The record is a 33-nucleotide RNA from Chrysochloris asiatica, which matches "Iron response element I" in Rfam. The base pairs follow the family's consensus structure, which is taken from published work. It is annotated as a cis-regulatory element.
RNA sequence: CUGUCUUGCUUCAGCAGUGUUUGGACGGAACAG
Number, nucleotide and partner (000 for none) at each position: 001c000002u030003g000004u029005c028006u027007u000008g026009c000010u025011u024012c023013a022014g021015c019016a000017g000018u000019g015020u000021u014022u013023g012024g011025a010026c008027g006028g005029a004030a002031c000032a000033g000